[Rfam]
RNA sequence: UCCUGUGUAUGGCACUGGUAGAAUUCACUGUGAAAAGAAGAUAUCAGUGAAUUACCAUAGGGCCAUAAACAGAG
Numbered sequence: 001u002c003c004u005g006u007g008u009a010u011g012g013c014a015c016u017g018g019u020a021g022a023a024u025u026c027a028c029u030g031u032g033a034a035a036a037g038a039a040g041a042u043a044u045c046a047g048u049g050a051a052u053u054a055c056c057a058u059a060g061g062g063c064c065a066u067a068a069a070c071a072g073a074g
Stems, first nucleotide, its partner, number of pairs: 003072004008067006016057003022053009